[Rfam]
RNA sequence: GGACUGUGACGAUUGAUAUCAUUGGUCUCGUUCGGCAUAAUGGCAUGCUAUGCUUGCCUUGAUGACCAUCCUGAUAUAUCACCACCCAUAUUCUGAGUCC
Number, nucleotide and partner (000 for none) at each position: 001g100002g099003a098004c097005u000006g000007u000008g000009a000010c000011g000012a000013u000014u000015g000016a000017u000018a000019u000020c000021a000022u000023u000024g000025g000026u000027c000028u000029c000030g000031u000032u000033c000034g000035g000036c000037a000038u000039a000040a000041u000042g000043g000044c000045a060046u000047g055048c000049u000050a000051u000052g000053c000054u000055u047056g000057c000058c000059u000060u045061g000062a000063u000064g000065a000066c000067c000068a000069u000070c000071c000072u000073g000074a000075u000076a000077u000078a000079u000080c000081a000082c000083c000084a000085c000086c000087c000088a000089u000090a000091u000092u000093c000094u000095g000096a000097g004098u003099c002100c001
The family of this 100-nucleotide RNA from Ricinus communis is "Small nucleolar RNA Z43". Pairs were carried over by alignment from the consensus structure, which was predicted with PFOLD. The literature on the family includes a 2003 paper in Nucleic Acids Res by Chen et al., "The high diversity of snoRNAs in plants: identification and comparative study of 120 snoRNA genes from Oryza sativa". The source organism's lineage runs through Eukaryota, Tracheophyta, Gunneridae, Acalyphoideae and Ricinus. It is one of the family's seed sequences. Its family is annotated with nucleolus and RNA processing in the Gene Ontology. Rfam classes the family as a C/D-box small nucleolar RNA.